[Rfam]
Description: The family of this 77-nucleotide RNA from Tetraodon nigroviridis is "mir-458 microRNA precursor family". The base pairs follow the family's consensus structure, which was predicted with RNAalifold.
RNA sequence: GUGCAGACGGCAGCGCCAUUUUCAGAGCUAUCAGUGCCAGCGGGUCAUAGCUCUUUAAAUGGUUCUGCUGUAGGCAC
Numbered sequence: 001g002u003g004c005a006g007a008c009g010g011c012a013g014c015g016c017c018a019u020u021u022u023c024a025g026a027g028c029u030a031u032c033a034g035u036g037c038c039a040g041c042g043g044g045u046c047a048u049a050g051c052u053c054u055u056u057a058a059a060u061g062g063u064u065c066u067g068c069u070g071u072a073g074g075c076a077c
Stems, first nucleotide, its partner, number of pairs: 002076003007071003011067003015063007024054008